[Rfam]
RNA sequence: GUCAGAGGGAAGCUCUUCAGUGAGGCCACAUGCUAGGUGCUUGUCACCAUCCCCUCAAGCCUCUAGGAAGGUCUGAGAGAAGAGCCAGUGGUUGCCCUUGCAGGGUAUUACCUGAUCCAGGUGGAUGGGCUACCAGACAGGUGUGAGCCUUGAGUUGGGGAAACCCUGGGUUGGCACAAGAUGCAGGAGGAGACUGCUUUUCCUGUGGAUGCUUAUCCCCUGCCCAGGACUUGGAACAGGCUCAUGGCUAGCAGUGCUGAGUGCAAUGGGAUGAGGUGAGGUGACUGCCUUGCCUGUGCAGGCCUCACAACCCAAUUCAGACUACUCUCCCUCUGAC
Numbered sequence: 001g002u003c004a005g006a007g008g009g010a011a012g013c014u015c016u017u018c019a020g021u022g023a024g025g026c027c028a029c030a031u032g033c034u035a036g037g038u039g040c041u042u043g044u045c046a047c048c049a050u051c052c053c054c055u056c057a058a059g060c061c062u063c064u065a066g067g068a069a070g071g072u073c074u075g076a077g078a079g080a081a082g083a084g085c086c087a088g089u090g091g092u093u094g095c096c097c098u099u100g101c102a103g104g105g106u107a108u109u110a111c112c113u114g115a116u117c118c119a120g121g122u123g124g125a126u127g128g129g130c131u132a133c134c135a136g137a138c139a140g141g142u143g144u145g146a147g148c149c150u151u152g153a154g155u156u157g158g159g160g161a162a163a164c165c166c167u168g169g170g171u172u173g174g175c176a177c178a179a180g181a182u183g184c185a186g187g188a189g190g191a192g193a194c195u196g197c198u199u200u201u202c203c204u205g206u207g208g209a210u211g212c213u214u215a216u217c218c219c220c221u222g223c224c225c226a227g228g229a230c231u232u233g234g235a236a237c238a239g240g241c242u243c244a245u246g247g248c249u250a251g252c253a254g255u256g257c258u259g260a261g262u263g264c265a266a267u268g269g270g271a272u273g274a275g276g277u278g279a280g281g282u283g284a285c286u287g288c289c290u291u292g293c294c295u296g297u298g299c300a301g302g303c304c305u306c307a308c309a310a311c312c313c314a315a316u317u318c319a320g321a322c323u324a325c326u327c328u329c330c331c332u333c334u335g336a337c
Stems, first nucleotide, its partner, number of pairs: 001337004008330003013275003017270002022063004036048004073320005083249004093107005108124006125245007143230002276308007